[Rfam]
RNA sequence: GCCGCGCCUAGAUCGGCCAAUCGAAAACCGGGAAACCCUUGCCCGGCUGGCGCGGCACCCCAACAAGGG
Numbered sequence: 001g002c003c004g005c006g007c008c009u010a011g012a013u014c015g016g017c018c019a020a021u022c023g024a025a026a027a028c029c030g031g032g033a034a035a036c037c038c039u040u041g042c043c044c045g046g047c048u049g050g051c052g053c054g055g056c057a058c059c060c061c062a063a064c065a066a067g068g069g
Base pairs, nucleotide, nucleotide: 001056002055003054004053005052006051007050008049011022012021013020028046029045030044031043032042036069037068038067039066040065041064
RNA: int-alpA RNA
Organism: Paludibacterium denitrificans